[Rfam]
RNA sequence: ACGCUCAUCAAAGCUGGCUGUGAUAUGAUGUGAAAGUACAUUUCACAGCCACUUUGAUGUGCAUAA
Numbered sequence: 001a002c003g004c005u006c007a008u009c010a011a012a013g014c015u016g017g018c019u020g021u022g023a024u025a026u027g028a029u030g031u032g033a034a035a036g037u038a039c040a041u042u043u044c045a046c047a048g049c050c051a052c053u054u055u056g057a058u059g060u061g062c063a064u065a066a
Stems, first nucleotide, its partner, number of pairs: 006059008015051009027042003
A member of the RNA family "mir-2 microRNA precursor family" from Laodelphax striatellus, 66 nucleotides long.
Pairs were carried over by alignment from the consensus structure, which was predicted with PFOLD.
The organism belongs to Laodelphax, within Eukaryota.